Rfam assigns this 269-nucleotide RNA sequence from Trichodelitschia bisporula to the family "Fungal signal recognition particle RNA".
Clan: SRP clan.
Lineage of the source: Eukaryota > Opisthokonta > saccharomyceta > Pezizomycotina > Trichodelitschia.
Rfam classes the family as a non-coding RNA gene.
The base pairs follow the family's consensus structure, which is taken from published work.
RNA sequence: CGGCUGUCAUGGUCGCAAUCGGAGAAGGCACUCUCAUCCACGUCCGCCCUUCCCCAUACACAUUCCGGCCGCCAUGUGCCGAGUUCGAAUCCGGUGGGGGUCGUCCACUCGUACGGGUAACCUACGAUUCGCUGGGCGUACCUUAAGACUGUGAGGCACACUUGAGUCGAGCAAUCGGGCAGAGAUCUCUCGCCAUCGGGUGGCGGUACUCGAAUACACGGGCUCCGGUCGGGGAUGGGUGCUGUGGGAUUGGGUGUCAACUUCUUUUU
Numbered sequence: 001c002g003g004c005u006g007u008c009a010u011g012g013u014c015g016c017a018a019u020c021g022g023a024g025a026a027g028g029c030a031c032u033c034u035c036a037u038c039c040a041c042g043u044c045c046g047c048c049c050u051u052c053c054c055c056a057u058a059c060a061c062a063u064u065c066c067g068g069c070c071g072c073c074a075u076g077u078g079c080c081g082a083g084u085u086c087g088a089a090u091c092c093g094g095u096g097g098g099g100g101u102c103g104u105c106c107a108c109u110c111g112u113a114c115g116g117g118u119a120a121c122c123u124a125c126g127a128u129u130c131g132c133u134g135g136g137c138g139u140a141c142c143u144u145a146a147g148a149c150u151g152u153g154a155g156g157c158a159c160a161c162u163u164g165a166g167u168c169g170a171g172c173a174a175u176c177g178g179g180c181a182g183a184g185a186u187c188u189c190u191c192g193c194c195a196u197c198g199g200g201u202g203g204c205g206g207u208a209c210u211c212g213a214a215u216a217c218a219c220g221g222g223c224u225c226c227g228g229u230c231g232g233g234g235a236u237g238g239g240u241g242c243u244g245u246g247g248g249a250u251u252g253g254g255u256g257u258c259a260a261c262u263u264c265u266u267u268u269u
Base pairs, nucleotide, nucleotide: 001015002014003013004012018267021264022263023262024261027258028257029256030255031254032253033252036250037249038248039246040245041244045241046240047239048238049237051235052234053233054232055231066227067226068225071223072222073221075220076219077218078217080212081211082210083209084208085206086205087204089201090200091199092198093197094196095195096194097193101140102138103137104136105135107129109127110126111125112124113123115122116121142147150192151191153189154188155187161184162183163182168177169176170175